[Rfam]
RNA sequence: GGGAUUGUAGUUUAAUGGUUAGAGCACCGCCCUGUCACGGCGGAAGUUGCGGGUUCGAGUCCCGUCAGUCCCG
Numbered sequence: 001g002g003g004a005u006u007g008u009a010g011u012u013u014a015a016u017g018g019u020u021a022g023a024g025c026a027c028c029g030c031c032c033u034g035u036c037a038c039g040g041c042g043g044a045a046g047u048u049g050c051g052g053g054u055u056c057g058a059g060u061c062c063c064g065u066c067a068g069u070c071c072c073g
Base pairs, nucleotide, nucleotide: 001072002071003070004069005068006067007066010025011024012023013022027043028042029041030040031039049065050064051063052062053061
RNA: tRNA
Organism: Euglena gracilis